The record is an 87-nucleotide RNA sequence from Phoenicopterus ruber, which matches "Small nucleolar RNA snR60/Z15/Z230/Z193/J17" in Rfam. Clan: SNORD77 clan. The pairing is the family consensus, mapped onto this sequence.
[Rfam]
RNA sequence: AAGGCUGUUGUGAUGAUUGCAUAGUUCAGCAGAUGGCCCGUGGUGAUCAUGCUGUUACUGUCUUUCGCUCCUAUCUGAUGCAGCCUC
Numbered sequence: 001a002a003g004g005c006u007g008u009u010g011u012g013a014u015g016a017u018u019g020c021a022u023a024g025u026u027c028a029g030c031a032g033a034u035g036g037c038c039c040g041u042g043g044u045g046a047u048c049a050u051g052c053u054g055u056u057a058c059u060g061u062c063u064u065u066c067g068c069u070c071c072u073a074u075c076u077g078a079u080g081c082a083g084c085c086u087c
Stems, first nucleotide, its partner, number of pairs: 004084005